[Rfam]
RNA: mir-172 microRNA precursor family
Organism: Olea europaea
RNA sequence: UUUCUUGCAAAUGCAGCGUCAUCAAGAUUCACAUGCAAUGCUAAGUAUUGCAAUGUGCAAUGAGAAUCUUGAUGAUGCUGCAUUAGCAAUUAU
Numbered sequence: 001u002u003u004c005u006u007g008c009a010a011a012u013g014c015a016g017c018g019u020c021a022u023c024a025a026g027a028u029u030c031a032c033a034u035g036c037a038a039u040g041c042u043a044a045g046u047a048u049u050g051c052a053a054u055g056u057g058c059a060a061u062g063a064g065a066a067u068c069u070u071g072a073u074g075a076u077g078c079u080g081c082a083u084u085a086g087c088a089a090u091u092a093u
Stems, first nucleotide, its partner, number of pairs: 010084021032062002